The family of this 143-nucleotide RNA sequence from Monosporascus sp. MC13-8B is "Group II catalytic intron D1-D4-7".
[Rfam]
Nucleotides: 143
Stems, first nucleotide, its partner, number of pairs: 002019006027068005032059004037054007083098002086095001088093001099124003109114001132143001
Number, partner (000 for none) and nucleotide at each position: 001000c002019u003018a004017g005016g006015u007014g008000u009000a010000c011000u012000c013000u014007c015006a016005c017004c018003u019002a020000a021000g022000u023000c024000u025000a026000g027068a028067u029066g030065a031064a032059u033058a034057c035056g036000a037054c038053a039052a040051a041050c042049u043048g044000g045000u046000a047000a048043c049042g050041g051040u052039u053038u054037g055000g056035u057034g058033u059032a060000a061000a062000g063000c064031u065030u066029c067028a068027u069000u070000g071000a072000c073000a074000a075000u076000g077000c078000u079000u080000u081000g082000a083098u084097u085000a086095u087000u088093a089000a090000c091000a092000u093088u094000u095086a096000a097084a098083a099124a100123u101122u102000u103000a104000u105000a106000g107000u108000a109114u110000g111000u112000g113000a114109a115000a116000a117000a118000u119000c120000u121000u122101a123100g124099u125000u126000a127000g128000g129000c130000u131000g132143u133000g134000a135000g136000a137000u138000a139000a140000a141000a142000g143132g

A reference for the family is Bonen and Vogel (2001), "The ins and outs of group II introns", Trends Genet. Lineage of the source: Eukaryota > Opisthokonta > saccharomyceta > Pezizomycotina > Monosporascus. Group II introns are found in rRNA, tRNA and mRNA of organelles in fungi, plants and protists, and also in mRNA in bacteria.